RNA sequence: CGCACUAUUUAUUAUAAGUCGCUUUGGACAAAAGCGUCUGCUAAAUGACCGUAA
Number, nucleotide and partner (000 for none) at each position: 001c000002g000003c000004a000005c000006u000007a000008u000009u000010u000011a000012u000013u043014a000015u040016a039017a000018g000019u000020c036021g035022c034023u033024u032025u031026g000027g000028a000029c000030a000031a025032a024033a023034g022035c021036g020037u000038c000039u016040g015041c000042u000043a013044a000045a000046u000047g000048a000049c000050c000051g000052u000053a000054a000